This 96-nucleotide RNA sequence belongs to the Rfam family "Rhodo-rpoB RNA". It is annotated as a cis-regulatory element.
RNA sequence: AAGCCGGGAGACUUUCUAACGGGAAGAAAGUCAAGAAUAGGUUUUCAUAGUUCCGCUCUCGUGUGGGAAUGUAACUGGUACCCGACAGAUUGCAUU
Numbered sequence: 001a002a003g004c005c006g007g008g009a010g011a012c013u014u015u016c017u018a019a020c021g022g023g024a025a026g027a028a029a030g031u032c033a034a035g036a037a038u039a040g041g042u043u044u045u046c047a048u049a050g051u052u053c054c055g056c057u058c059u060c061g062u063g064u065g066g067g068a069a070u071g072u073a074a075c076u077g078g079u080a081c082c083c084g085a086c087a088g089a090u091u092g093c094a095u096u
Stems, first nucleotide, its partner, number of pairs: 001044005010032008068096005073090001075088003